[Rfam]
RNA sequence: CUUCAUGGACCCGAGCCACAGCGGCCGGUCCGCCGGCCGCUCCUGCCCGUACGUGGCGAGCAGCGCCUGGGCCUC
Numbered sequence: 001c002u003u004c005a006u007g008g009a010c011c012c013g014a015g016c017c018a019c020a021g022c023g024g025c026c027g028g029u030c031c032g033c034c035g036g037c038c039g040c041u042c043c044u045g046c047c048c049g050u051a052c053g054u055g056g057c058g059a060g061c062a063g064c065g066c067c068u069g070g071g072c073c074u075c
Base pairs, nucleotide, nucleotide: 015025016024017023031071033069038065039064043060044059047056048055049054
Dot-bracket structure: ..............(((.....))).....(.(....((...((..(((....)))..))...))...).)....
Rfam assigns this 75-nucleotide RNA sequence from Streptomyces sp. ISL-11 to the family "ASpks TB sRNA".
The literature on the family includes a 2009 paper in Mol Microbiol by Arnvig and Young, "Identification of small RNAs in Mycobacterium tuberculosis".
Rfam 15.1 lists 9,052 matches to the family in 683 species.
The family's RNA type in Rfam is antisense RNA.
A search with the family's covariance model found it, with a score of 86 bits.